Antisense to traI: a 77-nucleotide sequence from Salmonella enterica. The pHK01 produces plasmid-encoded small RNAs and mediates expression of host sRNAs. Pairs were carried over by alignment from the consensus structure, which was predicted with RNAfold. The literature on the family includes a 2017 paper in FEMS Microbiol Ecol by Jiang et al., "The CTX-M-14 plasmid pHK01 encodes novel small RNAs and influences host growth and motility". The family's RNA type in Rfam is antisense RNA. The organism belongs to Salmonella enterica subsp. enterica serovar Typhimurium, within Bacteria.
[Rfam]
RNA sequence: CGGCACGCUGUCCGGAUGUCAGAGUCUCCAUGAGUUCGCCGGGUACCCUCUCCAUCAGUGGCGUGACCGCCUCCUUG
Numbered sequence: 001c002g003g004c005a006c007g008c009u010g011u012c013c014g015g016a017u018g019u020c021a022g023a024g025u026c027u028c029c030a031u032g033a034g035u036u037c038g039c040c041g042g043g044u045a046c047c048c049u050c051u052c053c054a055u056c057a058g059u060g061g062c063g064u065g066a067c068c069g070c071c072u073c074c075u076u077g
Stems, first nucleotide, its partner, number of pairs: 001069003004065008012043002015040001017038002021036002025033002